[Rfam]
This 91-nucleotide RNA sequence from Nitrosospira multiformis belongs to the Rfam family "Burkholderia RNA 7 (anti-hemB)". Pairs were carried over by alignment from the consensus structure, which is taken from published work. NCBI's taxonomy places the organism under Bacteria, Pseudomonadati, Betaproteobacteria, Nitrosomonadaceae, Nitrosospira multiformis. From the family's description: This RNA motif was identified by computational search in b-proteobacteria Burkholderia. Co-purified with Hfq, expression confirmed by Northern blot. Rfam classes the family as a small RNA. On this family, see Weinberg et al., Nucleic Acids Res 2007: "Identification of 22 candidate structured RNAs in bacteria using the CMfinder comparative genomics pipeline".
RNA sequence: UCUCCCGCUUUUCCUCCCUGAGCGGGUACCUUAAUCCCUAUUAAGGUAGUUUGCCCCCGGUUUUAUUCCCCUUUAACCGGGGGUUUUUUAU
Numbered sequence: 001u002c003u004c005c006c007g008c009u010u011u012u013c014c015u016c017c018c019u020g021a022g023c024g025g026g027u028a029c030c031u032u033a034a035u036c037c038c039u040a041u042u043a044a045g046g047u048a049g050u051u052u053g054c055c056c057c058c059g060g061u062u063u064u065a066u067u068c069c070c071c072u073u074u075a076a077c078c079g080g081g082g083g084u085u086u087u088u089u090a091u
Stems, first nucleotide, its partner, number of pairs: 004026006028047007055082008